A member of the RNA family "Purine riboswitch aptamer" from Anaerobacillus alkaliphilus, 100 nucleotides long. The literature on the family includes a 2013 paper in Nature by Reining et al., "Three-state mechanism couples ligand and temperature sensing in riboswitches". Its family is annotated with purine nucleobase biosynthetic process in the Gene Ontology. NCBI's taxonomy places the organism under Bacteria, Bacillati, Bacilli, Caryophanales, Anaerobacillus.
RNA sequence: UAAAUUAGCGUAAUGUUCGUUCGUAUAUUCUCAAUGAUAUGGAUUGAGAGUUUCUACUAGGGACCGGAAAGUCCUAACUACGAAUGGGGUGGAAAUUCUA
Number, nucleotide and partner (000 for none) at each position: 001u000002a000003a000004a000005u000006u000007a000008g000009c000010g000011u000012a000013a000014u000015g000016u000017u000018c086019g085020u084021u083022c082023g081024u080025a079026u000027a000028u000029u049030c048031u047032c046033a045034a044035u043036g000037a000038u000039a000040u000041g000042g000043a035044u034045u033046g032047a031048g030049a029050g000051u000052u000053u000054c000055u000056a000057c000058u076059a075060g074061g073062g072063a000064c000065c000066g000067g000068a000069a000070a000071g000072u062073c061074c060075u059076a058077a000078c000079u025080a024081c023082g022083a021084a020085u019086g018087g000088g000089g000090u000091g000092g000093a000094a000095a000096u000097u000098c000099u000100a000